[Rfam]
The record is a 155-nucleotide sequence from Erysipelotrichaceae bacterium MTC7, which matches "M-box riboswitch aptamer (ykoK leader)" in Rfam.
The literature on the family includes a 2004 paper in Proc Natl Acad Sci U S A by Barrick et al., "New RNA motifs suggest an expanded scope for riboswitches in bacterial genetic control".
Rfam 15.1 lists 1,095 matches to the family in 932 species.
About the family: M-box riboswitch, also know as ykoK leader is described as a metaloregulatory RNA that sense divalent metals and function as a genetic control element of genes related to divalent metal transport in bacteria.
RNA sequence: UAGAAAAACCGGUAAGUAAGGUUACUGUAGGGAUACGGGUUGCUGCCGCAAAAUAGUGGAGACACUAUGCGCUGGUUAGCAGGGAUGAUCGAUUCAAGGUCAUACCUAAUGCAAUUUCAUCGCCCUACAAAGCUAAAGCUCAAACGGAAAUGUCA
Numbered sequence: 001u002a003g004a005a006a007a008a009c010c011g012g013u014a015a016g017u018a019a020g021g022u023u024a025c026u027g028u029a030g031g032g033a034u035a036c037g038g039g040u041u042g043c044u045g046c047c048g049c050a051a052a053a054u055a056g057u058g059g060a061g062a063c064a065c066u067a068u069g070c071g072c073u074g075g076u077u078a079g080c081a082g083g084g085a086u087g088a089u090c091g092a093u094u095c096a097a098g099g100u101c102a103u104a105c106c107u108a109a110u111g112c113a114a115u116u117u118c119a120u121c122g123c124c125c126u127a128c129a130a131a132g133c134u135a136a137a138g139c140u141c142a143a144a145c146g147g148a149a150a151u152g153u154c155a
Stems, first nucleotide, its partner, number of pairs: 005151001009147003013097001015140003020134003026129007039115005046074001048072002055066004082106002085103001088100003